This 489-nucleotide RNA from Urbifossiella limnaea belongs to the Rfam family "Bacterial RNase P class A". The source organism's lineage runs through Bacteria, Pseudomonadati, Gemmatales, Gemmataceae and Urbifossiella. About the family: Ribonuclease P (RNase P) is a ubiquitous endoribonuclease, found in archaea, bacteria and eukarya as well as chloroplasts and mitochondria. The family is grouped with related families in Rfam's "RNaseP clan". By type it is a ribozyme.
RNA sequence: ACGGCCGGCGGGACGGCCGCCCCGCAAGGGGAGGAAAGUCCGGGCUCCACAGGGUGCGGUGGUGGGUAACGCCCACCCCCGGUAACGGCUUCGGGACCGGCCCGGGCCGCCAGCGGGCGGGACAGUGCAACAGAAAGAUACCGCCUCGUCGUCACUCGUCAUUCGUCAUCCGUCAUUCGAGGGGCGUGAACCUUUCGGUCUGCCCCCCGAAUGACGAAUGACGAAUGACGAGUGACGAAAGGUAAGGGUGAAAUGGUGCGGGGCGAAAGCCCUUAAUGUAAGAGCGCACCAGCGGCCGGGUGACCGGCCGGCUCGGCAAACCCCACCGGGAGCAAGGCCAAGCAGGGGACAGGACCGGCCCGGUCCGUUACGAUCCCCGGGUAGGCUGCUCGACCCCACGGGCAACCGUGGGGCUAGAUAAAUGGCCGUCGCCGCCGUGGUCGCAAGGCCGCGGCGGGACAGAACCCGGCUUACACGCCGGCCGGCAGA
Numbered sequence: 001a002c003g004g005c006c007g008g009c010g011g012g013a014c015g016g017c018c019g020c021c022c023c024g025c026a027a028g029g030g031g032a033g034g035a036a037a038g039u040c041c042g043g044g045c046u047c048c049a050c051a052g053g054g055u056g057c058g059g060u061g062g063u064g065g066g067u068a069a070c071g072c073c074c075a076c077c078c079c080c081g082g083u084a085a086c087g088g089c090u091u092c093g094g095g096a097c098c099g100g101c102c103c104g105g106g107c108c109g110c111c112a113g114c115g116g117g118c119g120g121g122a123c124a125g126u127g128c129a130a131c132a133g134a135a136a137g138a139u140a141c142c143g144c145c146u147c148g149u150c151g152u153c154a155c156u157c158g159u160c161a162u163u164c165g166u167c168a169u170c171c172g173u174c175a176u177u178c179g180a181g182g183g184g185c186g187u188g189a190a191c192c193u194u195u196c197g198g199u200c201u202g203c204c205c206c207c208c209g210a211a212u213g214a215c216g217a218a219u220g221a222c223g224a225a226u227g228a229c230g231a232g233u234g235a236c237g238a239a240a241g242g243u244a245a246g247g248g249u250g251a252a253a254u255g256g257u258g259c260g261g262g263g264c265g266a267a268a269g270c271c272c273u274u275a276a277u278g279u280a281a282g283a284g285c286g287c288a289c290c291a292g293c294g295g296c297c298g299g300g301u302g303a304c305c306g307g308c309c310g311g312c313u314c315g316g317c318a319a320a321c322c323c324c325a326c327c328g329g330g331a332g333c334a335a336g337g338c339c340a341a342g343c344a345g346g347g348g349a350c351a352g353g354a355c356c357g358g359c360c361c362g363g364u365c366c367g368u369u370a371c372g373a374u375c376c377c378c379g380g381g382u383a384g385g386c387u388g389c390u391c392g393a394c395c396c397c398a399c400g401g402g403c404a405a406c407c408g409u410g411g412g413g414c415u416a417g418a419u420a421a422a423u424g425g426c427c428g429u430c431g432c433c434g435c436c437g438u439g440g441u442c443g444c445a446a447g448g449c450c451g452c453g454g455c456g457g458g459a460c461a462g463a464a465c466c467c468g469g470c471u472u473a474c475a476c477g478c479c480g481g482c483c484g485g486c487a488g489a
Stems, first nucleotide, its partner, number of pairs: 002484009011474001012430007020031004036472003040469005045332004052361004057328005062076005077119001078117004120323002125321002127317002141247002143243003149238021255290006292312001293310007336387004346378003352366005394413008